[Rfam]
RNA sequence: ACAGAUCACGAGUUUGUGCGUGAAUCUAACACCAUUGGAUUCGUGGGGCCUCAAAAUGAACGGCCUUGAUGAUGGGGCUCGAUUCACGCACAAACUAGAGAUACGUCU
Numbered sequence: 001a002c003a004g005a006u007c008a009c010g011a012g013u014u015u016g017u018g019c020g021u022g023a024a025u026c027u028a029a030c031a032c033c034a035u036u037g038g039a040u041u042c043g044u045g046g047g048g049c050c051u052c053a054a055a056a057u058g059a060a061c062g063g064c065c066u067u068g069a070u071g072a073u074g075g076g077g078c079u080c081g082a083u084u085c086a087c088g089c090a091c092a093a094a095c096u097a098g099a100g101a102u103a104c105g106u107c108u
Stems, first nucleotide, its partner, number of pairs: 001106002005102003011096016028079001030077001032075002043065001
Shown here is a 108-nucleotide sequence from Ricinus communis, a member of the family "MIR403 microRNA precursor family". It scores 71 bits against the family's covariance model. NCBI's taxonomy places the organism under Eukaryota, Gunneridae, Pentapetalae, fabids, Ricinus. The family's consensus secondary structure was predicted with WAR. Rfam links the family to the GO terms RISC complex and miRNA-mediated post-transcriptional gene silencing. For this family Rfam cites "High throughput approaches reveal splicing of primary microRNA transcripts and tissue specific expression of mature microRNAs in Vitis vinifera" (Mica et al., BMC Genomics, 2009).